[Rfam]
mir-275 microRNA precursor family: an 86-nucleotide RNA from Ignelater luminosus. The family's consensus secondary structure was predicted with RNAalifold. NCBI's taxonomy places the organism under Eukaryota, Altocrustacea, Coleoptera, Elateridae, Ignelater.
RNA sequence: UAGCCUGUUGCUAUGCGGGCUACUUCGGUACCUCGACUGUGUGCAGUACAGUCAGGUACCUGAAGUAGCGCGCGUAGCGGCCGGUA
Numbered sequence: 001u002a003g004c005c006u007g008u009u010g011c012u013a014u015g016c017g018g019g020c021u022a023c024u025u026c027g028g029u030a031c032c033u034c035g036a037c038u039g040u041g042u043g044c045a046g047u048a049c050a051g052u053c054a055g056g057u058a059c060c061u062g063a064a065g066u067a068g069c070g071c072g073c074g075u076a077g078c079g080g081c082c083g084g085u086a
Stems, first nucleotide, its partner, number of pairs: 009079004014074001016072002019069004030057003035053004
Source information:
Its family is annotated with miRNA-mediated post-transcriptional gene silencing and RISC complex in the Gene Ontology.